[Rfam]
RNA: 7SK RNA
Organism: Sakesphorus luctuosus
RNA sequence: CGAUGGGAGGGCAAUCUGGCUGUGACCUCUGUCACCCCAUCGAUCGCCAGGGUUGAUUUGUCUGAUCUGGCUGGCUUGGCAGGUGUCCCAUUCCUCCCUCAACAUUCCAUGUGAGCUCAGCCAAAGAGAAUGACCUCCCAGAUGGAGAGCCAUCCGUCAAAGGUAUACAAUAGCUGUGCUCCCUUGCUAGAACCUCCAAACCAGCUCAAGCUCCAUUUGCAGGAGAAUGUAGGGUAGUCAAGCUUCCAAAACUGCAGAUCCAACCAAAUGAAGUGCUGCAUGGGACAAUUUGCUAUUGUUU
Dot-bracket structure: .((...(((((..(....(....(((.((((((.(((((..(((((.(...........).).)))))))..))...)))))).))).)..)...))))).....))........((((.(...................).)).)).........................(((...((.((((((......((((...(.((...........)).)..))))...)))))).))...)))......................(((.(.((((.((.......)).)..))).)..)))
Numbered sequence: 001c002g003a004u005g006g007g008a009g010g011g012c013a014a015u016c017u018g019g020c021u022g023u024g025a026c027c028u029c030u031g032u033c034a035c036c037c038c039a040u041c042g043a044u045c046g047c048c049a050g051g052g053u054u055g056a057u058u059u060g061u062c063u064g065a066u067c068u069g070g071c072u073g074g075c076u077u078g079g080c081a082g083g084u085g086u087c088c089c090a091u092u093c094c095u096c097c098c099u100c101a102a103c104a105u106u107c108c109a110u111g112u113g114a115g116c117u118c119a120g121c122c123a124a125a126g127a128g129a130a131u132g133a134c135c136u137c138c139c140a141g142a143u144g145g146a147g148a149g150c151c152a153u154c155c156g157u158c159a160a161a162g163g164u165a166u167a168c169a170a171u172a173g174c175u176g177u178g179c180u181c182c183c184u185u186g187c188u189a190g191a192a193c194c195u196c197c198a199a200a201c202c203a204g205c206u207c208a209a210g211c212u213c214c215a216u217u218u219g220c221a222g223g224a225g226a227a228u229g230u231a232g233g234g235u236a237g238u239c240a241a242g243c244u245u246c247c248a249a250a251a252c253u254g255c256a257g258a259u260c261c262a263a264c265c266a267a268a269u270g271a272a273g274u275g276c277u278g279c280a281u282g283g284g285a286c287a288a289u290u291u292g293c294u295a296u297u298g299u300u301u
Stems, first nucleotide, its partner, number of pairs: 002107002007100005014092001019089001024087003028083006035074002037070003042067004046062001048060001116147002118144002121141001173243003179237002182234006194225004201219001203217002266301003270296001272294003275289001277287002